[Rfam]
RNA sequence: GAGUGUUACGGCUCUUUUAGAAUUCGUCUAGCACAUUUUCCGGUCCACAAUGGAAAGCCCCC
Numbered sequence: 001g002a003g004u005g006u007u008a009c010g011g012c013u014c015u016u017u018u019a020g021a022a023u024u025c026g027u028c029u030a031g032c033a034c035a036u037u038u039u040c041c042g043g044u045c046c047a048c049a050a051u052g053g054a055a056a057g058c059c060c061c062c
Stems, first nucleotide, its partner, number of pairs: 036057007044049001